[Rfam]
RNA: UnaL2 LINE 3' element
Organism: Salmo trutta
RNA sequence: AGCACUCACUACUGUAAGUCGCUUUGGAUAAGAGCAUCUGCUAAAUUAUUAAAA
Numbered sequence: 001a002g003c004a005c006u007c008a009c010u011a012c013u014g015u016a017a018g019u020c021g022c023u024u025u026g027g028a029u030a031a032g033a034g035c036a037u038c039u040g041c042u043a044a045a046u047u048a049u050u051a052a053a054a
Base pairs, nucleotide, nucleotide: 013043014041015040016039021035022034023033024032025031